[Rfam]
RNA sequence: AGACAAAAAAUGCCGAAUCUGGAGCAUCAAAAGCUCUAGUACGGGGGACUUCUUUACUUGGGGUGAAUGAAUACACAGUUAGUCGCAGACUAAUUGAGUGUACUAGGGAAAACCUCUUCCCGAACCCGUCAACUAACCUCGGAGGCUUCAAGGAGGCACAAC
Numbered sequence: 001a002g003a004c005a006a007a008a009a010a011u012g013c014c015g016a017a018u019c020u021g022g023a024g025c026a027u028c029a030a031a032a033g034c035u036c037u038a039g040u041a042c043g044g045g046g047g048a049c050u051u052c053u054u055u056a057c058u059u060g061g062g063g064u065g066a067a068u069g070a071a072u073a074c075a076c077a078g079u080u081a082g083u084c085g086c087a088g089a090c091u092a093a094u095u096g097a098g099u100g101u102a103c104u105a106g107g108g109a110a111a112a113c114c115u116c117u118u119c120c121c122g123a124a125c126c127c128g129u130c131a132a133c134u135a136a137c138c139u140c141g142g143a144g145g146c147u148u149c150a151a152g153g154a155g156g157c158a159c160a161a162c
Stems, first nucleotide, its partner, number of pairs: 012146003019039007042141005051060001061127003069103001071101004106121004